[Rfam]
Nucleotides: 376
Stems, first nucleotide, its partner, number of pairs: 041056005060214005072205005085193002089190003095111005112175007215230003220241001222239001225237002342357004348373006
Number, partner (000 for none) and nucleotide at each position: 001000g002000g003000c004000c005000u006000u007000u008000u009000c010000a011000g012000a013000c014000g015000c016000a017000a018000g019000g020000u021000a022000c023000u024000u025000g026000c027000c028000u029000a030000u031000a032000u033000u034000c035000c036000u037000u038000u039000u040000c041056g042055c043054u044053g045052g046000c047000g048000c049000a050000a051000g052045c053044c054043g055042g056041c057000u058000a059000u060214g061213g062212c063211g064210a065000u066000a067000a068000a069000c070000c071000g072205c073204c074203g075202a076201u077000g078000a079000a080000a081000u082000a083000a084000g085193c086192c087000a088000u089190u090189c091188g092000g093000a094000c095111c096110c097109g098108g099107g100000g101000g102000c103000g104000g105000u106000a107099c108098c109097c110096g111095g112175c113174g114173c115172c116171u117170c118169c119000a120000c121000c122000u123000g124000a125000g126000u127000u128000c129000u130000u131000c132000c133000c134000c135000g136000a137000a138000g139000g140000a141000u142000c143000g144000c145000u146000u147000c148000c149000u150000u151000c152000c153000c154000g155000c156000g157000a158000a159000g160000a161000g162000c163000u164000g165000a166000g167000g168000c169118g170117g171116g172115g173114g174113c175112g176000a177000a178000a179000u180000a181000g182000g183000a184000u185000c186000g187000a188091c189090g190089a191000g192086g193085g194000u195000g196000u197000a198000a199000a200000g201076a202075u203074c204073g205072g206000a207000a208000c209000u210064u211063u212062g213061c214060u215230c216229g217228g218000c219000a220241u221000u222239g223000u224000a225237c226236c227000a228217c229216c230215g231000u232000u233000a234000u235000c236226g237225g238000g239222c240000u241220g242000u243000a244000u245000c246000a247000g248000u249000a250000g251000u252000u253000g254000c255000c256000a257000a258000u259000g260000a261000c262000a263000a264000c265000u266000a267000u268000g269000c270000g271000g272000a273000a274000g275000c276000c277000c278000g279000u280000c281000u282000c283000g284000c285000a286000g287000c288000c289000u290000a291000a292000g293000g294000c295000u296000g297000u298000g299000c300000g301000a302000u303000a304000g305000c306000u307000u308000c309000a310000a311000a312000u313000c314000a315000a316000g317000u318000c319000c320000u321000g322000g323000g324000g325000g326000u327000u328000c329000g330000c331000a332000c333000u334000c335000u336000c337000g338000g339000g340000c341000g342357g343356g344355g345354u346000c347000c348373g349372g350371a351370g352369g353368c354345a355344c356343c357342u358000g359000g360000c361000a362000a363000c364000a365000g366000a367000a368353g369352c370351c371350u372349c373348c374000a375000c376000u
Notes: This 376-nucleotide RNA from Aureimonas glaciei belongs to the Rfam family "Alphaproteobacteria transfer-messenger RNA". Lineage of the source: Bacteria > Pseudomonadati > Alphaproteobacteria > Hyphomicrobiales > Aureimonas. The base pairs follow the family's consensus structure, which is taken from published work. Bacterial tmRNA, also known as 10Sa RNA or SsrA, is named for its dual tRNA and mRNA-like properties. Its role is to liberate the mRNA from a stalled ribosome. To accomplish this part of the tmRNA is used as a reading frame that ends in a translation stop signal. The family is grouped with related families in Rfam's "tRNA clan".